[Rfam]
Nucleotides: 134
Stems, first nucleotide, its partner, number of pairs: 024049003028045006073091002076088002079084001096122002100118004
Number, partner (000 for none) and nucleotide at each position: 001000u002000c003000g004000u005000c006000a007000g008000u009000a010000a011000g012000g013000u014000a015000c016000a017000u018000c019000c020000u021000u022000a023000c024049c025048u026047g027000u028045u029044a030043c031042u032041c033040c034000u035000a036000u037000c038000a039000u040033g041032g042031a043030g044029u045028a046000u047026c048025a049024g050000a051000a052000a053000a054000a055000u056000g057000a058000u059000g060000a061000a062000u063000g064000g065000a066000g067000g068000u069000u070000c071000a072000u073091g074090a075000g076088g077087a078000a079084u080000g081000a082000u083000u084079a085000a086000g087077u088076c089000c090074u091073c092000c093000g094000u095000c096122u097121u098000g099000u100118a101117g102116g103115g104000a105000a106000c107000a108000g109000c110000a111000a112000c113000a114000c115103c116102c117101u118100u119000c120000a121097a122096g123000a124000u125000c126000c127000a128000u129000u130000c131000u132000g133000a134000u
U8 small nucleolar RNA: a 134-nucleotide sequence from Mola mola.
For this family Rfam cites "The U8 snoRNA gene family: identification and characterization of distinct, functional U8 genes in Xenopus" (Peculis et al., Gene, 2001).
Taxonomically the source falls in Mola (Eukaryota, Opisthokonta, Euteleosteomorpha, Moloidei).
Rfam links the family to the GO terms RNA processing and nucleolus.